[Rfam]
RNA sequence: CCUGAUGCGGUUACUCGUGUCUGUGAACUCUGUUUAUGGAGGGGUGACUAGGGAUUGAUGGUGCUCGUCUGGAUUGGAUAGUUUGGUUCCCCGGUUUAUUCUGGGGAACGUGUAGCUUUCCGCCAUGUCCGACUGGAGCAGAGUGUUGGCAAUGGCAUCCUAGCGCAGGCUUGUGGGUGUUCAUGGUUAUUAAAAACCAGGGCAAUGCGUGAGGCUGGUAACAGAGCAGCGAAAACCUGGUGCACUUUGUCUGUCAGAGGAUUGCAUGGCUAUGCGAUUCCUGUACUAAUGGCAGCGUCAUUCCUUUUUUUU
Numbered sequence: 001c002c003u004g005a006u007g008c009g010g011u012u013a014c015u016c017g018u019g020u021c022u023g024u025g026a027a028c029u030c031u032g033u034u035u036a037u038g039g040a041g042g043g044g045u046g047a048c049u050a051g052g053g054a055u056u057g058a059u060g061g062u063g064c065u066c067g068u069c070u071g072g073a074u075u076g077g078a079u080a081g082u083u084u085g086g087u088u089c090c091c092c093g094g095u096u097u098a099u100u101c102u103g104g105g106g107a108a109c110g111u112g113u114a115g116c117u118u119u120c121c122g123c124c125a126u127g128u129c130c131g132a133c134u135g136g137a138g139c140a141g142a143g144u145g146u147u148g149g150c151a152a153u154g155g156c157a158u159c160c161u162a163g164c165g166c167a168g169g170c171u172u173g174u175g176g177g178u179g180u181u182c183a184u185g186g187u188u189a190u191u192a193a194a195a196a197c198c199a200g201g202g203c204a205a206u207g208c209g210u211g212a213g214g215c216u217g218g219u220a221a222c223a224g225a226g227c228a229g230c231g232a233a234a235a236c237c238u239g240g241u242g243c244a245c246u247u248u249g250u251c252u253g254u255c256a257g258a259g260g261a262u263u264g265c266a267u268g269g270c271u272a273u274g275c276g277a278u279u280c281c282u283g284u285a286c287u288a289a290u291g292g293c294a295g296c297g298u299c300a301u302u303c304c305u306u307u308u309u310u311u312u
Stems, first nucleotide, its partner, number of pairs: 001043002004021007028041003046310002050306005058301007065292004071286001073284001076281003083277003122270007129260002133257004137252002139249008147189004152184004159177003162171003190195001196241006206233001208231003215224003